[Rfam]
Background
DUF3800-V RNA: an 89-nucleotide sequence from Tenderia electrophaga. The match comes from Rfam's covariance-model search (43 bits). Pairs were carried over by alignment from the consensus structure, which is taken from published work. The organism belongs to Tenderia (SeqCode), within Bacteria.

Nucleotides: 089
Stems, first nucleotide, its partner, number of pairs: 001088001005085002019075005025069001026062007037051003041047002
Number, partner (000 for none) and nucleotide at each position: 001088a002000a003000g004000a005085c006084g007000g008000g009000u010000a011000a012000u013000u014000c015000c016000u017000g018000c019075g020074a021073u022072g023071u024000g025069u026062c027061u028060g029059a030058u031057a032056u033000g034000u035000u036000c037051c038050c039049a040000u041047c042046c043000a044000u045000c046042g047041g048000u049039u050038g051037g052000c053000u054000a055000a056032g057031u058030a059029u060028c061027a062026g063000g064000a065000a066000c067000u068000u069025a070000g071023a072022c073021a074020u075019c076000a077000c078000g079000g080000g081000g082000g083000c084006c085005g086000u087000c088001u089000a